[Rfam]
RNA sequence: GAAGGUUCCGAUAACUGGCGGAUAUGUGGGGUACCACAGGGAAAUCGGAAUCCAUAAGGAGUCGACCGUCUGGGCAGCAAUG
Numbered sequence: 001g002a003a004g005g006u007u008c009c010g011a012u013a014a015c016u017g018g019c020g021g022a023u024a025u026g027u028g029g030g031g032u033a034c035c036a037c038a039g040g041g042a043a044a045u046c047g048g049a050a051u052c053c054a055u056a057a058g059g060a061g062u063c064g065a066c067c068g069u070c071u072g073g074g075c076a077g078c079a080a081u082g
Base pairs, nucleotide, nucleotide: 004052005051006050007049008048009047010046011045012044015041016040017070018069019068020067021066026037027036028035029034061075062074063073
Description:
The family of this 82-nucleotide RNA from Firmicutes bacterium CAG:646 is "ZMP/ZTP riboswitch aptamer (pfl RNA motif)". The match comes from Rfam's covariance-model search (59 bits). The base pairs follow the family's consensus structure, which is taken from published work.